RNA sequence: AUUUAAUAAAGGCAAACUAUCUGAAAGGAUGGGACGCAAAGCAAUGGGCCUAAAGAUGCAGUAACCAUGCAUCCACGGCUGCCAGGCUGCCACC
Numbered sequence: 001a002u003u004u005a006a007u008a009a010a011g012g013c014a015a016a017c018u019a020u021c022u023g024a025a026a027g028g029a030u031g032g033g034a035c036g037c038a039a040a041g042c043a044a045u046g047g048g049c050c051u052a053a054a055g056a057u058g059c060a061g062u063a064a065c066c067a068u069g070c071a072u073c074c075a076c077g078g079c080u081g082c083c084a085g086g087c088u089g090c091c092a093c094c
Base pairs, nucleotide, nucleotide: 012037013036017032018031019030020029021028022027040088041087042086045084046083047082048079049078050077055073056072057071058070059069060068
Rfam assigns this 94-nucleotide RNA sequence from Paenibacillus sp. FSL R7-0331 to the family "c-di-GMP-I riboswitch aptamer". For this family Rfam cites "Identification of 22 candidate structured RNAs in bacteria using the CMfinder comparative genomics pipeline" (Weinberg et al., Nucleic Acids Res, 2007). It scores 72 bits against the family's covariance model. Rfam describes the family as follows. GEMM was predicted in a large-scale screen for bacterial structured RNA regulatory elements.